[Rfam]
RNA sequence: UUUUUUUGGAUGAGAACUGUUUUCCGCACCUUUGGCUAUAAAAACAAACAAAGGUGGGAAAACAUUUCUCAUCUAAACAAU
Numbered sequence: 001u002u003u004u005u006u007u008g009g010a011u012g013a014g015a016a017c018u019g020u021u022u023u024c025c026g027c028a029c030c031u032u033u034g035g036c037u038a039u040a041a042a043a044a045c046a047a048a049c050a051a052a053g054g055u056g057g058g059a060a061a062a063c064a065u066u067u068c069u070c071a072u073c074u075a076a077a078c079a080a081u
Stems, first nucleotide, its partner, number of pairs: 005077012018064008027056008
RNA: MIR5743 microRNA precursor family